[Rfam]
RNA sequence: ACGUUAUCACGAAAGGCAGAGGGAUUAGACCCGUUGAAACCUUAGCAACCUCCUUUUUUAAAAAGAAAAGGUGCUACAUUCUACAAGUUAUGGCUAUUUUUAAAUUGGCAUUUUCUUGACAGAUAACAG
Dot-bracket structure: ..((((((....((((....(((..[[[[))).......))))((((.(((.((.........)).)..))))))...(]]]]((((...........................))))..)))))))..
Numbered sequence: 001a002c003g004u005u006a007u008c009a010c011g012a013a014a015g016g017c018a019g020a021g022g023g024a025u026u027a028g029a030c031c032c033g034u035u036g037a038a039a040c041c042u043u044a045g046c047a048a049c050c051u052c053c054u055u056u057u058u059u060a061a062a063a064a065g066a067a068a069a070g071g072u073g074c075u076a077c078a079u080u081c082u083a084c085a086a087g088u089u090a091u092g093g094c095u096a097u098u099u100u101u102a103a104a105u106u107g108g109c110a111u112u113u114u115c116u117u118g119a120c121a122g123a124u125a126a127c128a129g
Stems, first nucleotide, its partner, number of pairs: 003127006013043004021032003026083004044075004049071002051067001053065002079121001084118004